[Rfam]
RNA sequence: GAAAGAAUAUUGCGUAGGCCUUUGCUUCGAAAGCUAUACAGUUUCAACUGUUCGCAGCAAUAUCCUCCGCAAUAUUUUUGA
Numbered sequence: 001g002a003a004a005g006a007a008u009a010u011u012g013c014g015u016a017g018g019c020c021u022u023u024g025c026u027u028c029g030a031a032a033g034c035u036a037u038a039c040a041g042u043u044u045c046a047a048c049u050g051u052u053c054g055c056a057g058c059a060a061u062a063u064c065c066u067c068c069g070c071a072a073u074a075u076u077u078u079u080g081a
Stems, first nucleotide, its partner, number of pairs: 003079012016066003022060005028054004
A member of the RNA family "mir-242 microRNA precursor family" from Caenorhabditis latens, 81 nucleotides long. Taxonomically the source falls in Caenorhabditis (Eukaryota, Metazoa, Bilateria, Ecdysozoa). The match comes from Rfam's covariance-model search (82 bits). A reference for the family is de Wit et al. (2009), "Repertoire and evolution of miRNA genes in four divergent nematode species", Genome Res.